RNA sequence: CUGCAGCGCCGGUUUUCAACCGGCACUGCAGUUUUAGUCAGGACCUCAGCCCAAAAAGUCGUGGUCCCUAUUCGAAAAAUAUGAAGACCAGCAGGGGCAUCCGGGCUGGUACCCGGGCUAUCUGUGAGGUCCGUUUGAAUCUGUCUGAGCUGUAGUCCAGACCGGUCUUGAGCGGUGACCACGCUGAUGGUGUCCCCUUACCGAGGGUGACCA
Numbered sequence: 001c002u003g004c005a006g007c008g009c010c011g012g013u014u015u016u017c018a019a020c021c022g023g024c025a026c027u028g029c030a031g032u033u034u035u036a037g038u039c040a041g042g043a044c045c046u047c048a049g050c051c052c053a054a055a056a057a058g059u060c061g062u063g064g065u066c067c068c069u070a071u072u073c074g075a076a077a078a079a080u081a082u083g084a085a086g087a088c089c090a091g092c093a094g095g096g097g098c099a100u101c102c103g104g105g106c107u108g109g110u111a112c113c114c115g116g117g118c119u120a121u122c123u124g125u126g127a128g129g130u131c132c133g134u135u136u137g138a139a140u141c142u143g144u145c146u147g148a149g150c151u152g153u154a155g156u157c158c159a160g161a162c163c164g165g166u167c168u169u170g171a172g173c174g175g176u177g178a179c180c181a182c183g184c185u186g187a188u189g190g191u192g193u194c195c196c197c198u199u200a201c202c203g204a205g206g207g208u209g210a211c212c213a
Base pairs, nucleotide, nucleotide: 001031002030003029004028005027006026008024009023010022011021012020013019041067042066043065044064045063049059050058093198094197095196096195097194098192099191100117101116102115103114104113105112118190119189120188121187122186124184125183126182128180129179131175132174134172135170137168139166143162144161145160146159147158
Rfam assigns this 213-nucleotide RNA from Pseudomonas kuykendallii to the family "sucA-II RNA". Pairs were carried over by alignment from the consensus structure, which is taken from published work. Rfam classes the family as a cis-regulatory element. The source organism's lineage runs through Bacteria, Pseudomonadati, Pseudomonadota, Pseudomonadaceae and Pseudomonas. It scores 154 bits against the family's covariance model.